The family of this 81-nucleotide RNA from Halalkalibacter okhensis is "c-di-GMP-I riboswitch aptamer". The base pairs follow the family's consensus structure, which is taken from published work. The source organism's lineage runs through Bacteria, Bacillati, Bacillota, Bacilli and Halalkalibacter. The match comes from Rfam's covariance-model search (80 bits).
[Rfam]
RNA sequence: AAACGAAAAUAGCAAACUUGUCGAAAGAGAAGGACGCAAAGCCACGGGCCUAAGGACGACUAUGGCAGCCGGGUUGCCGAA
Numbered sequence: 001a002a003a004c005g006a007a008a009a010u011a012g013c014a015a016a017c018u019u020g021u022c023g024a025a026a027g028a029g030a031a032g033g034a035c036g037c038a039a040a041g042c043c044a045c046g047g048g049c050c051u052a053a054g055g056a057c058g059a060c061u062a063u064g065g066c067a068g069c070c071g072g073g074u075u076g077c078c079g080a081a
Stems, first nucleotide, its partner, number of pairs: 012037002017032003021028002040075004045071003048066003055060001